[Rfam]
RNA sequence: CAGCAUGUUUCCAAGGGCUGUGGCUGAUUGUGGCCAUGGGAUCUCCAAUUGCACGAGAGAACAACUUGGAAAGACUUUGACAGCUCAGGUCUGCACAAUACCUGUAGCUGCCACUCGCCUUUCCUAUAAUG
Numbered sequence: 001c002a003g004c005a006u007g008u009u010u011c012c013a014a015g016g017g018c019u020g021u022g023g024c025u026g027a028u029u030g031u032g033g034c035c036a037u038g039g040g041a042u043c044u045c046c047a048a049u050u051g052c053a054c055g056a057g058a059g060a061a062c063a064a065c066u067u068g069g070a071a072a073g074a075c076u077u078u079g080a081c082a083g084c085u086c087a088g089g090u091c092u093g094c095a096c097a098a099u100a101c102c103u104g105u106a107g108c109u110g111c112c113a114c115u116c117g118c119c120u121u122u123c124c125u126a127u128a129a130u131g
Stems, first nucleotide, its partner, number of pairs: 011039002016035007068124006083111002086104004

This 131-nucleotide sequence from Dipodomys ordii belongs to the Rfam family "Small nucleolar RNA SNORA44". NCBI's taxonomy places the organism under Eukaryota, Bilateria, Euteleostomi, Castorimorpha, Dipodomys. Rfam links the family to the GO terms nucleolus and RNA processing. Rfam describes the family as follows. ACA44 is a member of the H/ACA class of snoRNA that guide the sites of modification of uridines to pseudouridines. It is annotated as an H/ACA-box small nucleolar RNA. The family is grouped with related families in Rfam's "SNORA44 clan".